The family of this 64-nucleotide RNA from Oryzias javanicus is "Selenocysteine insertion sequence 1".
RNA sequence: UUUACUUCAUGAAGACACUUCUUUAAGCCUUUUUUGUGUGAGAAGUUUCUGAUAAAUCUGUAAA
Numbered sequence: 001u002u003u004a005c006u007u008c009a010u011g012a013a014g015a016c017a018c019u020u021c022u023u024u025a026a027g028c029c030u031u032u033u034u035u036g037u038g039u040g041a042g043a044a045g046u047u048u049c050u051g052a053u054a055a056a057u058c059u060g061u062a063a064a
Stems, first nucleotide, its partner, number of pairs: 001064005014049002017046007029038001031036001
The incorporation of selenocysteine into a protein sequence is directed by an in-frame UGA codon (usually a stop codon) within the coding region of the mRNA. Selenoprotein mRNAs contain a conserved secondary structure in the 3' UTR that is required for the distinction of UGA stop from UGA selenocysteine.
The organism belongs to Oryzias, within Eukaryota.
By type it is a cis-regulatory element.